Shown here is a 104-nucleotide sequence from Brachypodium distachyon, a member of the family "MIR5185 microRNA precursor family". It is one of the family's seed sequences.
RNA sequence: ACUUAUAUCCCGCUUCUAAGUCAAUCUCUAAAUCCACGAGUCAAAUUCAAUGCUUAUAUUUGACUUGUGGAUUUGGAGAUUGACUUAGAAGCGGGAUUAGGCGG
Number, nucleotide and partner (000 for none) at each position: 001a000002c101003u100004u099005a098006u000007a000008u096009c095010c094011c093012g092013c091014u090015u089016c088017u087018a086019a085020g084021u083022c082023a081024a000025u079026c078027u077028c076029u075030a074031a073032a072033u071034c070035c069036a068037c000038g066039a065040g064041u063042c062043a061044a060045a059046u000047u058048c000049a000050a055051u000052g000053c000054u000055u050056a000057u000058a047059u045060u044061u043062g042063a041064c040065u039066u038067g000068u036069g035070g034071a033072u032073u031074u030075g029076g028077a027078g026079a025080u000081u023082g022083a021084c020085u019086u018087a017088g016089a015090a014091g013092c012093g011094g010095g009096a008097u000098u005099a004100g003101g002102c000103g000104g000